[Rfam]
RNA sequence: ACUAAAGUGAUUUAUGGCAGGUCUCGGCCCUGGGCCUCACAUAGUGCCCCAUGCCAGAGUCAGCUGUGGCCCUGAACCAUUGCCUGGUCUCUGCGCCCGUAGGCUGCAGGCACUGAAGCGGGUUACACAUUG
Numbered sequence: 001a002c003u004a005a006a007g008u009g010a011u012u013u014a015u016g017g018c019a020g021g022u023c024u025c026g027g028c029c030c031u032g033g034g035c036c037u038c039a040c041a042u043a044g045u046g047c048c049c050c051a052u053g054c055c056a057g058a059g060u061c062a063g064c065u066g067u068g069g070c071c072c073u074g075a076a077c078c079a080u081u082g083c084c085u086g087g088u089c090u091c092u093g094c095g096c097c098c099g100u101a102g103g104c105u106g107c108a109g110g111c112a113c114u115g116a117a118g119c120g121g122g123u124u125a126c127a128c129a130u131u132g
Base pairs, nucleotide, nucleotide: 002046012044013043014042015041016040019037020036021035022033023032067125068124069123070122071121072120078115079114083110084109085106086105087104088103089102090101

Record summary
The family of this 132-nucleotide sequence from Pteropus alecto is "Small nucleolar RNA SNORA42/SNORA80 family". The family's consensus secondary structure was predicted with RNAalifold. Lineage of the source: Eukaryota > Bilateria > Boreoeutheria > Yinpterochiroptera > Pteropus. The match comes from Rfam's covariance-model search (90 bits). Rfam describes the family as follows. The members of this family belong to the H/ACA class of snoRNAs that guide the sites of modification of uridines to pseudouridines. Human ACA42 (SNORA42) was cloned from HeLa cells by immunoprecipitation with anti-GAR1 antibody. Its is predicted to guide the pseudouridylation of residues U109 and U572 of 18S rRNA. ACA42 shares the same host gene with ACA26, ACA46, ACA50. This family also includes mammalian snoRNA ACA67 (SNORA80) which was identified by computational screening and its expression in mouse experimentally verified by Northern blot and primer extension analysis. ACA67 is proposed to guide the pseudouridylation of the same 18S rRNA residues as ACA42. For this family Rfam cites "A computational screen for mammalian pseudouridylation guide H/ACA RNAs" (Schattner et al., RNA, 2006).